Shown here is an 88-nucleotide RNA from Lacrimispora algidixylanolytica, a member of the family "c-di-GMP-I riboswitch aptamer". Taxonomically the source falls in Lacrimispora (Bacteria, Bacillati, Bacillota, Clostridia). A search with the family's covariance model found it, with a score of 69 bits. Pairs were carried over by alignment from the consensus structure, which is taken from published work.
[Rfam]
RNA sequence: AUAUGUUAAAGGCAAACCUGUUGAAAAACGGGGGCGCAAAGCCGAGGGUCUAAGGUGUUUCUUGCACUAUGAUAGCCUAGCCGUGAGA
Number, nucleotide and partner (000 for none) at each position: 001a000002u000003a000004u000005g000006u000007u000008a000009a000010a000011g000012g037013c036014a000015a000016a000017c032018c031019u030020g029021u028022u027023g000024a000025a000026a000027a022028a021029c020030g019031g018032g017033g000034g000035c000036g013037c012038a000039a000040a000041g081042c080043c000044g000045a078046g077047g076048g073049u072050c071051u000052a000053a000054g000055g067056u066057g065058u064059u000060u000061c000062u000063u000064g058065c057066a056067c055068u000069a000070u000071g050072a049073u048074a000075g000076c047077c046078u045079a000080g042081c041082c000083g000084u000085g000086a000087g000088a000